RNA sequence: GCCCUUUUCAGGACGCGCGGAAGGCACUAUAUCCCUAUUGCCGGUCUUCGGGUCGGCUAUGGCGAUAAACGGGCGAUGGAAUAAACCUAUUGGACCCGGGGGCGGUACCCGGCGCCUCCACCAAAAACUGGCCAGCAGGCCGGCUUUUGAUGGGGGCGAAACAGGAUCGACAAGGGUGUAAAGAUCGACUUUUCGCUCGGCAUUGUACCACCGUUAUCGGGCUAAAAUUGUAGUUGCAAACGACAACUAUGCGGAAGCUCGUCUCGCUGCCUAAUGGCGGUGUGACACUUCAAAUAAAGUCCUGACGGUUCGCACCGGCAGGCGGGGUUCGAAGGCACCUGGCAACAGAAGCCUUCACC
Numbered sequence: 001g002c003c004c005u006u007u008u009c010a011g012g013a014c015g016c017g018c019g020g021a022a023g024g025c026a027c028u029a030u031a032u033c034c035c036u037a038u039u040g041c042c043g044g045u046c047u048u049c050g051g052g053u054c055g056g057c058u059a060u061g062g063c064g065a066u067a068a069a070c071g072g073g074c075g076a077u078g079g080a081a082u083a084a085a086c087c088u089a090u091u092g093g094a095c096c097c098g099g100g101g102g103c104g105g106u107a108c109c110c111g112g113c114g115c116c117u118c119c120a121c122c123a124a125a126a127a128c129u130g131g132c133c134a135g136c137a138g139g140c141c142g143g144c145u146u147u148u149g150a151u152g153g154g155g156g157c158g159a160a161a162c163a164g165g166a167u168c169g170a171c172a173a174g175g176g177u178g179u180a181a182a183g184a185u186c187g188a189c190u191u192u193u194c195g196c197u198c199g200g201c202a203u204u205g206u207a208c209c210a211c212c213g214u215u216a217u218c219g220g221g222c223u224a225a226a227a228u229u230g231u232a233g234u235u236g237c238a239a240a241c242g243a244c245a246a247c248u249a250u251g252c253g254g255a256a257g258c259u260c261g262u263c264u265c266g267c268u269g270c271c272u273a274a275u276g277g278c279g280g281u282g283u284g285a286c287a288c289u290u291c292a293a294a295u296a297a298a299g300u301c302c303u304g305a306c307g308g309u310u311c312g313c314a315c316c317g318g319c320a321g322g323c324g325g326g327g328u329u330c331g332a333a334g335g336c337a338c339c340u341g342g343c344a345a346c347a348g349a350a351g352c353c354u355u356c357a358c359c
Base pairs, nucleotide, nucleotide: 040057041056042055043054044053045052046051061197062196063195064194065193071190072189074187075186076185077184086176087175088174090173091172092171096112097111098110099109100108113158114157115156116155117154118153119152198213199212200211203224205222208220209219325340326339327338328337331356332355333354334353335352336351